[Rfam]
RNA sequence: UGUCUCCUCCAUGUCUCCACUGAUAUGGAUUCAAGCCCGCCCUCGUUGGUGGGCUUUUUUUU
Number, nucleotide and partner (000 for none) at each position: 001u000002g000003u000004c000005u000006c000007c000008u029009c028010c027011a026012u025013g024014u023015c022016u000017c000018c000019a000020c000021u000022g015023a014024u013025a012026u011027g010028g009029a008030u000031u000032c000033a000034a055035g054036c053037c052038c051039g050040c049041c048042c000043u000044c000045g000046u000047u000048g041049g040050u039051g038052g037053g036054c035055u034056u000057u000058u000059u000060u000061u000062u000
Annotation: Rfam assigns this 62-nucleotide RNA sequence from Paraburkholderia sp. BL10I2N1 to the family "Betaproteobacteria toxic small RNA". On this family, see Kimelman et al., Genome Res 2012: "A vast collection of microbial genes that are toxic to bacteria". Overexpression in amino aid rich medium attenuates growth, suggesting role in repressing amino acid intake and metabolism. The match comes from Rfam's covariance-model search (67 bits). The family's consensus secondary structure was predicted with WAR.